[Rfam]
Description: Shown here is a 131-nucleotide RNA sequence from Flavobacterium columnare, a member of the family "Bacteroidete tryptophan peptide leader RNA". Rfam classes the family as a cis-regulatory leader. NCBI's taxonomy places the organism under Bacteria, Bacteroidota, Flavobacteriales, Flavobacteriaceae, Flavobacterium columnare. It scores 64 bits against the family's covariance model. The family's consensus secondary structure is taken from published work.
RNA sequence: UACAAAUAUUUAGAAUAAAAAUGCAAAAUAGUUUAAACAAUACUUGGUGGUGGAACAACUUACGUCAGUCGUCGUGAGCAGUACCAGCUAUGUAGUAGUUUAAAACCAUAAUAUACUCAAAAAGGCUUGUC
Numbered sequence: 001u002a003c004a005a006a007u008a009u010u011u012a013g014a015a016u017a018a019a020a021a022u023g024c025a026a027a028a029u030a031g032u033u034u035a036a037a038c039a040a041u042a043c044u045u046g047g048u049g050g051u052g053g054a055a056c057a058a059c060u061u062a063c064g065u066c067a068g069u070c071g072u073c074g075u076g077a078g079c080a081g082u083a084c085c086a087g088c089u090a091u092g093u094a095g096u097a098g099u100u101u102a103a104a105a106c107c108a109u110a111a112u113a114u115a116c117u118c119a120a121a122a123a124g125g126c127u128u129g130u131c
Stems, first nucleotide, its partner, number of pairs: 036100003041094003045090003049085004059078003062072003